[Rfam]
RNA sequence: GUUUCUUCCUCUCCCACAAAGGCUUCUAACGUUGUGGCUUACGCACAUCAUGUUGGAAGCCUUUGAGGGAGAGGAAAAAGCAA
Numbered sequence: 001g002u003u004u005c006u007u008c009c010u011c012u013c014c015c016a017c018a019a020a021g022g023c024u025u026c027u028a029a030c031g032u033u034g035u036g037g038c039u040u041a042c043g044c045a046c047a048u049c050a051u052g053u054u055g056g057a058a059g060c061c062u063u064u065g066a067g068g069g070a071g072a073g074g075a076a077a078a079a080g081c082a083a
Stems, first nucleotide, its partner, number of pairs: 006076010017065010